Mammalian CPEB3 ribozyme: a 69-nucleotide RNA from Pan troglodytes. The sequence is in the family's curated seed alignment. Pairs were carried over by alignment from the consensus structure, which is taken from published work. NCBI's taxonomy places the organism under Eukaryota, Teleostomi, Euteleostomi, Hominoidea, Pan.

[Rfam]
RNA sequence: GGGGGCCACAGCAGAAGCGUUCACGUCGCGGCCCCUGUCAGCCAUUGCACUCCGGCUGCGAAUUCUGCU
Numbered sequence: 001g002g003g004g005g006c007c008a009c010a011g012c013a014g015a016a017g018c019g020u021u022c023a024c025g026u027c028g029c030g031g032c033c034c035c036u037g038u039c040a041g042c043c044a045u046u047g048c049a050c051u052c053c054g055g056c057u058g059c060g061a062a063u064u065c066u067g068c069u
Stems, first nucleotide, its partner, number of pairs: 002035006010069007017029003039058005